This 93-nucleotide RNA sequence from Eubacterium pyruvativorans belongs to the Rfam family "Selenocysteine transfer RNA". The base pairs follow the family's consensus structure, which is taken from published work.

[Rfam]
RNA sequence: GGGGGUAGAUGGGUGCUGGUGUGCCUCCUGGUCUUCAAAACCAGUGUAGGGGGUUAGGAGCCUCCCGGGUGGGUUCGAUUCCCACAUACUCCC
Numbered sequence: 001g002g003g004g005g006u007a008g009a010u011g012g013g014u015g016c017u018g019g020u021g022u023g024c025c026u027c028c029u030g031g032u033c034u035u036c037a038a039a040a041c042c043a044g045u046g047u048a049g050g051g052g053g054u055u056a057g058g059a060g061c062c063u064c065c066c067g068g069g070u071g072g073g074u075u076c077g078a079u080u081c082c083c084a085c086a087u088a089c090u091c092c093c
Stems, first nucleotide, its partner, number of pairs: 001093007008085001011026006028044005047067001049065003070084004
The match comes from Rfam's covariance-model search (71 bits).